[Rfam]
RNA: Purine riboswitch aptamer
Organism: Paraliobacillus ryukyuensis
RNA sequence: GAGAAAUAUGAAAGCUACCUCUAUAUAAUCUCGAUAAUAGGGUUCGAGAGUUUCUAGCGAGUAACCGUAAAUAGCUCGACUAUGGAGGCAGAUAAACGUACG
Numbered sequence: 001g002a003g004a005a006a007u008a009u010g011a012a013a014g015c016u017a018c019c020u021c022u023a024u025a026u027a028a029u030c031u032c033g034a035u036a037a038u039a040g041g042g043u044u045c046g047a048g049a050g051u052u053u054c055u056a057g058c059g060a061g062u063a064a065c066c067g068u069a070a071a072u073a074g075c076u077c078g079a080c081u082a083u084g085g086a087g088g089c090a091g092a093u094a095a096a097c098g099u100a101c102g
Base pairs, nucleotide, nucleotide: 018088019087020086021085022084023083024082025081029049030048031047032046033045034044058078059077060076061075062074064072